Shown here is a 302-nucleotide sequence from Clarias magur, a member of the family "Nuclear RNase P". A search with the family's covariance model found it, with a score of 196 bits. Lineage of the source: Eukaryota > Metazoa > Vertebrata > Osteoglossocephalai > Clarias. The base pairs follow the family's consensus structure, which is taken from published work.

RNA sequence: GUGGGAGGAAGCUCACUGCAGAGGUCACAAACUGAGUGUCAGUCACUCGCGCUGGAACCUUGGGGAAGGUCUGAGACAGGAGCCAAUCACUGCCCUCGCAGGGUGUCACCUGAUCCAGGUGAGUGAGCGCACAGGAACGUUGGGCUUGAGUGGUGUGUGUUCAUAAGAGAAGUCAGUCAGUAGAGUGGUGCUGCUGAUGGAUGUGACAUCACUGGCUUGGAAAUGCUCAUGGCUGGCGACAGAGUUCAAUGUGUGAGCUGGAGCUGGUUUCCAGAACCCAAUUCAGACUACUCUCCUCCCAC
Numbered sequence: 001g002u003g004g005g006a007g008g009a010a011g012c013u014c015a016c017u018g019c020a021g022a023g024g025u026c027a028c029a030a031a032c033u034g035a036g037u038g039u040c041a042g043u044c045a046c047u048c049g050c051g052c053u054g055g056a057a058c059c060u061u062g063g064g065g066a067a068g069g070u071c072u073g074a075g076a077c078a079g080g081a082g083c084c085a086a087u088c089a090c091u092g093c094c095c096u097c098g099c100a101g102g103g104u105g106u107c108a109c110c111u112g113a114u115c116c117a118g119g120u121g122a123g124u125g126a127g128c129g130c131a132c133a134g135g136a137a138c139g140u141u142g143g144g145c146u147u148g149a150g151u152g153g154u155g156u157g158u159g160u161u162c163a164u165a166a167g168a169g170a171a172g173u174c175a176g177u178c179a180g181u182a183g184a185g186u187g188g189u190g191c192u193g194c195u196g197a198u199g200g201a202u203g204u205g206a207c208a209u210c211a212c213u214g215g216c217u218u219g220g221a222a223a224u225g226c227u228c229a230u231g232g233c234u235g236g237c238g239a240c241a242g243a244g245u246u247c248a249a250u251g252u253g254u255g256a257g258c259u260g261g262a263g264c265u266g267g268u269u270u271c272c273a274g275a276a277c278c279c280a281a282u283u284c285a286g287a288c289u290a291c292u293c294u295c296c297u298c299c300c301a302c
Stems, first nucleotide, its partner, number of pairs: 001302004007296003012257005021061004034048005071286005081234004091105005106122006123230007144216003258274006